Rfam assigns this 450-nucleotide sequence from Metarhizium rileyi to the family "RNase MRP". Rfam classes the family as a ribozyme.
[Rfam]
RNA sequence: CCCUCGCUCAACAAAUCGCUAUUCGAAGCUAACGCACAGAGACACUCGGCCUUGGCCAGCGUCUCAAUAUGAAACAUAGCUUUGGGAGAAAGUCCCCGGACGUCUCUCUUAGGAGAGUUUGCGGAAACGCGCCGCCAUAGAAGCACUGCGGCUGACCUUUGGCGCCUUGGCCUCCUCCGUGUACCAUUCGCCCUACUCGUCGUCACAUCCGCGUCUUGCGAAUCUCUACUGGACCCUGGUUGCAUCUCCUGGCCCAUUUGGAUGAAGAUAUGAGUCCGCGUUGGGAAGUGUGACUGGGACCUUCAGUAGUGGACAAACAGAUCGGAUGGCGGGUAGCCGUGGGUGGCAUAGAGUAUGGCAUCGGGUGCUGAGGAUUUGUUGUCGAAGUUGAUAGAUAUGCGAUUGCUCGGCUUGCCGGGUUACUCGAUGGGGCUUAUUCUUGAGGCGAGG
Numbered sequence: 001c002c003c004u005c006g007c008u009c010a011a012c013a014a015a016u017c018g019c020u021a022u023u024c025g026a027a028g029c030u031a032a033c034g035c036a037c038a039g040a041g042a043c044a045c046u047c048g049g050c051c052u053u054g055g056c057c058a059g060c061g062u063c064u065c066a067a068u069a070u071g072a073a074a075c076a077u078a079g080c081u082u083u084g085g086g087a088g089a090a091a092g093u094c095c096c097c098g099g100a101c102g103u104c105u106c107u108c109u110u111a112g113g114a115g116a117g118u119u120u121g122c123g124g125a126a127a128c129g130c131g132c133c134g135c136c137a138u139a140g141a142a143g144c145a146c147u148g149c150g151g152c153u154g155a156c157c158u159u160u161g162g163c164g165c166c167u168u169g170g171c172c173u174c175c176u177c178c179g180u181g182u183a184c185c186a187u188u189c190g191c192c193c194u195a196c197u198c199g200u201c202g203u204c205a206c207a208u209c210c211g212c213g214u215c216u217u218g219c220g221a222a223u224c225u226c227u228a229c230u231g232g233a234c235c236c237u238g239g240u241u242g243c244a245u246c247u248c249c250u251g252g253c254c255c256a257u258u259u260g261g262a263u264g265a266a267g268a269u270a271u272g273a274g275u276c277c278g279c280g281u282u283g284g285g286a287a288g289u290g291u292g293a294c295u296g297g298g299a300c301c302u303u304c305a306g307u308a309g310u311g312g313a314c315a316a317a318c319a320g321a322u323c324g325g326a327u328g329g330c331g332g333g334u335a336g337c338c339g340u341g342g343g344u345g346g347c348a349u350a351g352a353g354u355a356u357g358g359c360a361u362c363g364g365g366u367g368c369u370g371a372g373g374a375u376u377u378g379u380u381g382u383c384g385a386a387g388u389u390g391a392u393a394g395a396u397a398u399g400c401g402a403u404u405g406c407u408c409g410g411c412u413u414g415c416c417g418g419g420u421u422a423c424u425c426g427a428u429g430g431g432g433c434u435u436a437u438u439c440u441u442g443a444g445g446c447g448a449g450g
Base pairs, nucleotide, nucleotide: 002450003449004448005447006446007445008443009442010441011440014404015403016402017401018400019399023086024084025083026082027081028080029079039065040064041063042062043061045059090435091434092433094432095431096430097429120131121130122129123128287376288375289374294372295371297369298368300365301364302363311356313354314353339349340348341347406419407418408417409416410415
A search with the family's covariance model found it, with a score of 101 bits. From the family's description: RNase MRP is an enzymatically active ribonucleoprotein with two distinct roles in eukaryotes. In mitochondria it plays a direct role in the initiation of mitochondrial DNA replication. In the nucleus it is involved in precursor rRNA processing, where it cleaves the internal transcribed spacer 1 between 18S and 5.8S rRNAs. Despite distinct functions, RNase MRP has been shown to be evolutionarily related to RNase P. Like eukaryotic RNase P, RNase MRP is not catalytically active without associated protein subunits.